[Rfam]
RNA: Small nucleolar RNA SNORD11B
Organism: Oryzias javanicus
RNA sequence: AGUGGGCGAUGAUGAUCCAGACGAAACGUCAUUUUUCCUGAAUCUGAUGACGGUUUUAAGUCACUACCUCUUCUGAGCUCAUU
Numbered sequence: 001a002g003u004g005g006g007c008g009a010u011g012a013u014g015a016u017c018c019a020g021a022c023g024a025a026a027c028g029u030c031a032u033u034u035u036u037c038c039u040g041a042a043u044c045u046g047a048u049g050a051c052g053g054u055u056u057u058a059a060g061u062c063a064c065u066a067c068c069u070c071u072u073c074u075g076a077g078c079u080c081a082u083u
Stems, first nucleotide, its partner, number of pairs: 002082006